Rfam assigns this 153-nucleotide RNA from Bartonella henselae to the family "speF leader".
[Rfam]
RNA sequence: UUCCAGCUGUCCAAAUGCUGGGAUAACUAUAGAGGCACACCUCAUUGCCUUCAGUGCGGAAGUGGUUUUCUCAACUCCAAUCAAAAAGGCAGAAAAAGUAAAGCAACGCGAUUUUCGCGCUGUUUUUUCGCUGCAUGCAAUGCUGCUUUCUUC
Numbered sequence: 001u002u003c004c005a006g007c008u009g010u011c012c013a014a015a016u017g018c019u020g021g022g023a024u025a026a027c028u029a030u031a032g033a034g035g036c037a038c039a040c041c042u043c044a045u046u047g048c049c050u051u052c053a054g055u056g057c058g059g060a061a062g063u064g065g066u067u068u069u070c071u072c073a074a075c076u077c078c079a080a081u082c083a084a085a086a087a088g089g090c091a092g093a094a095a096a097a098g099u100a101a102a103g104c105a106a107c108g109c110g111a112u113u114u115u116c117g118c119g120c121u122g123u124u125u126u127u128u129c130g131c132u133g134c135a136u137g138c139a140a141u142g143c144u145g146c147u148u149u150c151u152u153c
Stems, first nucleotide, its partner, number of pairs: 001023007034049004056131003081093002101114003

Source information:
This family is a putative regulatory RNA structure that is found upstream of the speF gene encoding ornithine decarboxylase in Agrobacterium tumefaciens and other alpha-proteobacteria. It is annotated as a cis-regulatory leader. Its family is annotated with regulation of gene expression in the Gene Ontology. The sequence is in the family's curated seed alignment. The family's consensus secondary structure was predicted with RNAalifold. For this family Rfam cites "A survey of sRNA families in alpha-proteobacteria" (del Val et al., RNA Biol, 2012). The source organism's lineage runs through Bacteria, Pseudomonadati, Pseudomonadota, Alphaproteobacteria and Bartonella.